[Rfam]
This 170-nucleotide RNA from Rhinolophus ferrumequinum belongs to the Rfam family "TUC338". Pairs were carried over by alignment from the consensus structure, which was predicted with WAR. Lineage of the source: Eukaryota > Opisthokonta > Teleostomi > Rhinolophoidea > Rhinolophus.
Nucleotides: 170
Stems, first nucleotide, its partner, number of pairs: 002157003006152002010148011023134005029129002032127003038104002041101001047097001050095005061083005113121002
Number, partner (000 for none) and nucleotide at each position: 001000u002157u003156g004155a005000a006152g007151g008000c009000a010148u011147g012146g013145a014144g015143a016142c017141u018140g019139a020138a021000g022000u023134c024133c025132u026131c027130u028000c029129u030128g031000u032127a033126u034125c035000c036000a037000c038104a039103g040000a041101a042000u043000a044000g045000g046000u047097a048000u049000g050095g051094c052093a053092c054091a055000g056000g057000u058000a059000g060000c061083g062082g063081c064080a065079g066000u067000g068000c069000a070000g071000c072000u073000u074000u075000u076000c077000c078000a079065c080064u081063g082062u083061c084000c085000c086000a087000c088000c089000a090000a091054u092053g093052u094051g095050c096000c097047u098000c099000a100000g101041u102000c103039c104038u105000a106000g107000c108000c109000c110000a111000g112000g113121g114120g115000c116000c117000g118000u119000a120114c121113u122000c123000a124000g125034g126033g127032u128030c129029a130027a131026g132025g133024g134023g135000c136000u137000g138020u139019u140018c141017a142016g143015u144014c145013u146012c147011c148010a149000u150000g151007c152006c153000c154000u155004u156003c157002a158000a159000u160000u161000u162000u163000g164000g165000g166000c167000c168000a169000c170000u

On this family, see Braconi et al., Proc Natl Acad Sci U S A 2011: "Expression and functional role of a transcribed noncoding RNA with an ultraconserved element in hepatocellular carcinoma". The family has 34 seed sequences and 75,615 matches in Rfam 15.1. The match comes from Rfam's covariance-model search (147 bits).